RNA sequence: AAUAUUUUACGUUAGGUGAGGCUCCUAUACAGAUAUACGCUGCUGCCCGGAAACAUCGAGAGAUGCCAAUGGGCUAACAGGUAUUACCGAAUCAAGGUUUUACUUAGUGUGGCUGAGCAAUUUUGUCUUAAAGCUGUAUAGUGCUAAAACUCAACGAAUGUAUAAUUUU
Numbered sequence: 001a002a003u004a005u006u007u008u009a010c011g012u013u014a015g016g017u018g019a020g021g022c023u024c025c026u027a028u029a030c031a032g033a034u035a036u037a038c039g040c041u042g043c044u045g046c047c048c049g050g051a052a053a054c055a056u057c058g059a060g061a062g063a064u065g066c067c068a069a070u071g072g073g074c075u076a077a078c079a080g081g082u083a084u085u086a087c088c089g090a091a092u093c094a095a096g097g098u099u100u101u102a103c104u105u106a107g108u109g110u111g112g113c114u115g116a117g118c119a120a121u122u123u124u125g126u127c128u129u130a131a132a133g134c135u136g137u138a139u140a141g142u143g144c145u146a147a148a149a150c151u152c153a154a155c156g157a158a159u160g161u162a163u164a165a166u167u168u169u
Base pairs, nucleotide, nucleotide: 005165006164008162009161010160011155012154013095015151016150017149020145021144022143025141026140027139028138029137030136031135032134039113040112041111042110043109045074046073047072048071049070054065055064056063057062080104081103082102083101086098087097088096115129116128117127
RNA: M-box riboswitch aptamer (ykoK leader)